[Rfam]
RNA: permuted transfer-messenger RNA
RNA sequence: GGCGAUAAAUGGUCAUCGGAAUAAGCCUUUCGGACCCGGGGGCGGUACCCGGCGCCUCCACCAAAACCCGGCUCUGGUCGGGCUUUGGCGGGGGCGAAACAGGAUCGACGAGGGUGUAAAGGGUGUGCUUUUGCCCGGCAUGGUUCCGCCGUUAUCGGGCCGUUGCAAUAGUUGCCAACGACAACUUUGCUGAGGUCCGCGCGGCCGCGUAA
Numbered sequence: 001g002g003c004g005a006u007a008a009a010u011g012g013u014c015a016u017c018g019g020a021a022u023a024a025g026c027c028u029u030u031c032g033g034a035c036c037c038g039g040g041g042g043c044g045g046u047a048c049c050c051g052g053c054g055c056c057u058c059c060a061c062c063a064a065a066a067c068c069c070g071g072c073u074c075u076g077g078u079c080g081g082g083c084u085u086u087g088g089c090g091g092g093g094g095c096g097a098a099a100c101a102g103g104a105u106c107g108a109c110g111a112g113g114g115u116g117u118a119a120a121g122g123g124u125g126u127g128c129u130u131u132u133g134c135c136c137g138g139c140a141u142g143g144u145u146c147c148g149c150c151g152u153u154a155u156c157g158g159g160c161c162g163u164u165g166c167a168a169u170a171g172u173u174g175c176c177a178a179c180g181a182c183a184a185c186u187u188u189g190c191u192g193a194g195g196u197c198c199g200c201g202c203g204g205c206c207g208c209g210u211a212a
Stems, first nucleotide, its partner, number of pairs: 001135005014125004026114003030111003036052005053096007136151004